Description: Rfam assigns this 352-nucleotide RNA sequence from Nitratidesulfovibrio vulgaris to the family "transfer-messenger RNA". The family's RNA type in Rfam is non-coding RNA gene. Rfam's curators put it in the seed alignment. Gene Ontology term of the family: RNA catabolic process.
RNA sequence: GGGGGCGCACUGGUUUCGACGGGGACGUAGAAGCCGGAGUUGCAGGCCGAGGCGCCGCUGGCCUCGUAAAAAGCGGCACAAAAGUAAUUGCCAACAAUUACGACUACGCUCUGGCUGCUUAAUUGACGGCCACGUCGAACCGGUUCACGCCUGAUAGACCGGUGAGACGUAACUUCAUCAGGCUGGCAUCUGACGGCGCUCGCCGCGAAGGGUGCGAGAAAAACAGGUGAGCUGGUCGAAGGUUGCCUGGUCGGGGGCGAAACCUGAGAUGACGAUUGUACUCGACCUAAGCCUGUAGACGCUUCGUGUGGAACAUUCUCGGACGCGGGUUCGAUUCCCGCCGCCUCCACCA
Numbered sequence: 001g002g003g004g005g006c007g008c009a010c011u012g013g014u015u016u017c018g019a020c021g022g023g024g025a026c027g028u029a030g031a032a033g034c035c036g037g038a039g040u041u042g043c044a045g046g047c048c049g050a051g052g053c054g055c056c057g058c059u060g061g062c063c064u065c066g067u068a069a070a071a072a073g074c075g076g077c078a079c080a081a082a083a084g085u086a087a088u089u090g091c092c093a094a095c096a097a098u099u100a101c102g103a104c105u106a107c108g109c110u111c112u113g114g115c116u117g118c119u120u121a122a123u124u125g126a127c128g129g130c131c132a133c134g135u136c137g138a139a140c141c142g143g144u145u146c147a148c149g150c151c152u153g154a155u156a157g158a159c160c161g162g163u164g165a166g167a168c169g170u171a172a173c174u175u176c177a178u179c180a181g182g183c184u185g186g187c188a189u190c191u192g193a194c195g196g197c198g199c200u201c202g203c204c205g206c207g208a209a210g211g212g213u214g215c216g217a218g219a220a221a222a223a224c225a226g227g228u229g230a231g232c233u234g235g236u237c238g239a240a241g242g243u244u245g246c247c248u249g250g251u252c253g254g255g256g257g258c259g260a261a262a263c264c265u266g267a268g269a270u271g272a273c274g275a276u277u278g279u280a281c282u283c284g285a286c287c288u289a290a291g292c293c294u295g296u297a298g299a300c301g302c303u304u305c306g307u308g309u310g311g312a313a314c315a316u317u318c319u320c321g322g323a324c325g326c327g328g329g330u331u332c333g334a335u336u337c338c339c340g341c342c343g344c345c346u347c348c349a350c351c352a
Stems, first nucleotide, its partner, number of pairs: 001348007020321006027314002033309002037304004043295005048066005054077006112132006133169004140162004150182006184217001186215006198232005235270003241265002244262001245258003249287007325341005